RNA sequence: GGAGUCGGCCAGACAGUCGCCGCCGUGCCGGCCCUCGCGGUCGGCCGGGGGAGGAAAGUCCGGGCUCCAUAGGGCAGGGUGCCAGGUAACGCCUGGGCGGCGUGAGCCGACGGAAAGUGCAGCAGAGAGUAGACCGCCUACGUCUCCUUCGGGAGGCCGGUAAGGGUGAAAGGGUGCGGUAAGAGCGCACCGCGCGCCUGGUAACAGUGCGUGGCAUGGUAAACCCCACCCGGAGCAAGACCAAAUAGGAACCCAAUGACGUGGCCCGCGUCGGGUUCGGGUAGGUUGCUCGAGGGCCGUGGUGACGCGGCCCCUAGAUGAAUGGCUGUCCUCGACAGAACCCGGCUUAUCGGCCGACUCCCCCU
Numbered sequence: 001g002g003a004g005u006c007g008g009c010c011a012g013a014c015a016g017u018c019g020c021c022g023c024c025g026u027g028c029c030g031g032c033c034c035u036c037g038c039g040g041u042c043g044g045c046c047g048g049g050g051g052a053g054g055a056a057a058g059u060c061c062g063g064g065c066u067c068c069a070u071a072g073g074g075c076a077g078g079g080u081g082c083c084a085g086g087u088a089a090c091g092c093c094u095g096g097g098c099g100g101c102g103u104g105a106g107c108c109g110a111c112g113g114a115a116a117g118u119g120c121a122g123c124a125g126a127g128a129g130u131a132g133a134c135c136g137c138c139u140a141c142g143u144c145u146c147c148u149u150c151g152g153g154a155g156g157c158c159g160g161u162a163a164g165g166g167u168g169a170a171a172g173g174g175u176g177c178g179g180u181a182a183g184a185g186c187g188c189a190c191c192g193c194g195c196g197c198c199u200g201g202u203a204a205c206a207g208u209g210c211g212u213g214g215c216a217u218g219g220u221a222a223a224c225c226c227c228a229c230c231c232g233g234a235g236c237a238a239g240a241c242c243a244a245a246u247a248g249g250a251a252c253c254c255a256a257u258g259a260c261g262u263g264g265c266c267c268g269c270g271u272c273g274g275g276u277u278c279g280g281g282u283a284g285g286u287u288g289c290u291c292g293a294g295g296g297c298c299g300u301g302g303u304g305a306c307g308c309g310g311c312c313c314c315u316a317g318a319u320g321a322a323u324g325g326c327u328g329u330c331c332u333c334g335a336c337a338g339a340a341c342c343c344g345g346c347u348u349a350u351c352g353g354c355c356g357a358c359u360c361c362c363c364c365u
Base pairs, nucleotide, nucleotide: 001361002360003359004358005357006356007355008354009353010352011350012330013329014328015327016326017325018324020051021050023048024047025046028043056348057347058346060345061344062343063342064341065235066234067233068232072267073266074265075264077231078230079229080228081227082096083095084094085093086092097111098109099108100107101106112226113225117224118223119220120219134165135164136161137160138159142157143156144155145154146153147152173191174190175189176188177187178186192215193213194212195211196210197209198207199206200205239287240286241285242284249278250277251276252275253274254273258272259271260270261269262268294313295312296311297310298309299308300307301306

The record is a 365-nucleotide RNA sequence from Halomonas sp. DQ26W, which matches "Bacterial RNase P class A" in Rfam.
The organism belongs to Halomonas, within Bacteria.
By type it is a ribozyme.
The family's consensus secondary structure is taken from published work.